[Rfam]
RNA sequence: GUCUGUGCAGUGAUGAGGCUAAUUUGUGGACUAGAGUUUCUGAUCUGGGCUUCGAUCUCAGAAGCUGACGACUAACCCUUGGCUGUCUGAGCACAUUC
Numbered sequence: 001g002u003c004u005g006u007g008c009a010g011u012g013a014u015g016a017g018g019c020u021a022a023u024u025u026g027u028g029g030a031c032u033a034g035a036g037u038u039u040c041u042g043a044u045c046u047g048g049g050c051u052u053c054g055a056u057c058u059c060a061g062a063a064g065c066u067g068a069c070g071a072c073u074a075a076c077c078c079u080u081g082g083c084u085g086u087c088u089g090a091g092c093a094c095a096u097u098c
Stems, first nucleotide, its partner, number of pairs: 001098001004095005037070001039068002044063001045061005

This 98-nucleotide RNA sequence from Actinidia chinensis belongs to the Rfam family "Small nucleolar RNA Z157/R69/R10". Rfam 15.1 lists 836 matches to the family in 232 species. Rfam classes the family as a C/D-box small nucleolar RNA. NCBI's taxonomy places the organism under Eukaryota, Embryophyta, Spermatophyta, eudicotyledons, Actinidia chinensis. For this family Rfam cites "The high diversity of snoRNAs in plants: identification and comparative study of 120 snoRNA genes from Oryza sativa" (Chen et al., Nucleic Acids Res, 2003).